The record is a 117-nucleotide sequence from Roseateles saccharophilus, which matches "ALIL pseudoknot" in Rfam. The family's consensus secondary structure is taken from published work. Its family is annotated with positive regulation of translational frameshifting in the Gene Ontology.
[Rfam]
RNA sequence: CGCUUUUUUCGCCCAGGCGGAGCUCGACCGCCGCAUCAAGUCCUGAAGGCCUUCGUCGACCGGCAUCGCCAGCAGUUCGGGGUCGAGUCGAUCUGUCGCGUCAUGCAGAUCGCCCCG
Numbered sequence: 001c002g003c004u005u006u007u008u009u010c011g012c013c014c015a016g017g018c019g020g021a022g023c024u025c026g027a028c029c030g031c032c033g034c035a036u037c038a039a040g041u042c043c044u045g046a047a048g049g050c051c052u053u054c055g056u057c058g059a060c061c062g063g064c065a066u067c068g069c070c071a072g073c074a075g076u077u078c079g080g081g082g083u084c085g086a087g088u089c090g091a092u093c094u095g096u097c098g099c100g101u102c103a104u105g106c107a108g109a110u111c112g113c114c115c116c117g
Stems, first nucleotide, its partner, number of pairs: 016032005078117005089112002092109005